[Rfam]
RNA sequence: AUAUCGAACUCACUCGACGCGUGGCAGGAGCGGGGGAACCAGGUAGGCCGCCGACCGGCGAAGACCGGUCGGCUCGGGGUGAAGUCGCGCUCGCCGCGGCCGGGCAUCUCCAGCCCGAACCCGACAGCUCACCUCGCAGGCGCCGGAGAGGAAGC
Numbered sequence: 001a002u003a004u005c006g007a008a009c010u011c012a013c014u015c016g017a018c019g020c021g022u023g024g025c026a027g028g029a030g031c032g033g034g035g036g037a038a039c040c041a042g043g044u045a046g047g048c049c050g051c052c053g054a055c056c057g058g059c060g061a062a063g064a065c066c067g068g069u070c071g072g073c074u075c076g077g078g079g080u081g082a083a084g085u086c087g088c089g090c091u092c093g094c095c096g097c098g099g100c101c102g103g104g105c106a107u108c109u110c111c112a113g114c115c116c117g118a119a120c121c122c123g124a125c126a127g128c129u130c131a132c133c134u135c136g137c138a139g140g141c142g143c144c145g146g147a148g149a150g151g152a153a154g155c
Base pairs, nucleotide, nucleotide: 004029005027030137031136032135033134034133035132040076077122078121079120085099086098087097088096102116103115104114105113

Rfam assigns this 155-nucleotide sequence to the family "c-di-AMP riboswitch aptamer (ydaO/yuaA leader)". Rfam describes the family as follows. This family represents a conserved RNA structure found upstream of the ydaO and yuaA genes in Bacillus subtilis and related genes in other bacteria.